[Rfam]
RNA sequence: AAGCUAAUAUUUUUCUUAAAAAUGAUGGAUGUUGUUGAUUGUCUGAAAUUGGUCAAUGUCGCUAAAAUUGAGACACAGCUCAUGCUUCCCUCACAGGAAGCAUGUUAUAGUGGUGACAAUGAGGCCUGUAACAUUU
Numbered sequence: 001a002a003g004c005u006a007a008u009a010u011u012u013u014u015c016u017u018a019a020a021a022a023u024g025a026u027g028g029a030u031g032u033u034g035u036u037g038a039u040u041g042u043c044u045g046a047a048a049u050u051g052g053u054c055a056a057u058g059u060c061g062c063u064a065a066a067a068u069u070g071a072g073a074c075a076c077a078g079c080u081c082a083u084g085c086u087u088c089c090c091u092c093a094c095a096g097g098a099a100g101c102a103u104g105u106u107a108u109a110g111u112g113g114u115g116a117c118a119a120u121g122a123g124g125c126c127u128g129u130a131a132c133a134u135u136u
Stems, first nucleotide, its partner, number of pairs: 002063003008058003023045002075129004089115001091113004
Dot-bracket structure: .(((...(((............((...................))..........)))..)))...........((((..........(.((((...............)))).)..........)))).......
Rfam assigns this 136-nucleotide RNA from Heterocephalus glaber to the family "Small nucleolar RNA SNORA1".
The family has 29 seed sequences and 1,282 matches in Rfam 15.1.
ACA1 is a member of the H/ACA class of snoRNA that guide the sites of modification of uridines to pseudouridines.
Pairs were carried over by alignment from the consensus structure, which was predicted with PFOLD.
The family's RNA type in Rfam is H/ACA-box small nucleolar RNA.